[Rfam]
RNA sequence: GUUUACUGCGACGAUAGAAAAGCUCCCUCUUCUGAAUUACAUUGAGGACGCUUGCCGGCAGAAUCGAACCAAUAACUAAUUUGCCACUACUGAGUAA
Numbered sequence: 001g002u003u004u005a006c007u008g009c010g011a012c013g014a015u016a017g018a019a020a021a022g023c024u025c026c027c028u029c030u031u032c033u034g035a036a037u038u039a040c041a042u043u044g045a046g047g048a049c050g051c052u053u054g055c056c057g058g059c060a061g062a063a064u065c066g067a068a069c070c071a072a073u074a075a076c077u078a079a080u081u082u083g084c085c086a087c088u089a090c091u092g093a094g095u096a097a
Base pairs, nucleotide, nucleotide: 003097004096005095006094
Dot-bracket structure: ..((((.......................................................................................))))
The family of this 97-nucleotide RNA sequence from Salvia splendens is "Small nucleolar RNA R30/Z108". Lineage of the source: Eukaryota > Euphyllophyta > Spermatophyta > Salvia > core Calosphace. Pairs were carried over by alignment from the consensus structure, which was predicted with PFOLD. The family has 6 seed sequences and 626 matches in Rfam 15.1. The family is grouped with related families in Rfam's "SNORD100 clan". About the family: snoR30 is a C/D box small nucleolar RNA which acts as a methylation guide for 18S ribosomal RNA in plants.